[Rfam]
RNA sequence: CACAGUCAAAGGCAAACGGGGUGUAAGUCCCGGACGCAAAGCCACAGGCCCGACCGGUUUGACCGAGGGCGGCUGGGUUGCCCGU
Numbered sequence: 001c002a003c004a005g006u007c008a009a010a011g012g013c014a015a016a017c018g019g020g021g022u023g024u025a026a027g028u029c030c031c032g033g034a035c036g037c038a039a040a041g042c043c044a045c046a047g048g049c050c051c052g053a054c055c056g057g058u059u060u061g062a063c064c065g066a067g068g069g070c071g072g073c074u075g076g077g078u079u080g081c082c083c084g085u
Stems, first nucleotide, its partner, number of pairs: 012037002017032006040079004045075003048070003055065004
RNA: c-di-GMP-I riboswitch aptamer
Organism: Rhodocyclaceae bacterium